Notes: The record is a 62-nucleotide RNA from Rhizobium sp. Root149, which matches "terC RNA" in Rfam. Rfam classes the family as a cis-regulatory element. The organism belongs to Rhizobium, within Bacteria.
RNA sequence: CCACAGCACCGGGCCCCUCUGACGUGUAUUGCCGGAUCGACCCGUGAUGUCGGUGCUAGAGA
Numbered sequence: 001c002c003a004c005a006g007c008a009c010c011g012g013g014c015c016c017c018u019c020u021g022a023c024g025u026g027u028a029u030u031g032c033c034g035g036a037u038c039g040a041c042c043c044g045u046g047a048u049g050u051c052g053g054u055g056c057u058a059g060a061g062a
Base pairs, nucleotide, nucleotide: 006056007055008054009053010052011051012050022045023044024043026041027040
Pairs were carried over by alignment from the consensus structure, which is taken from published work.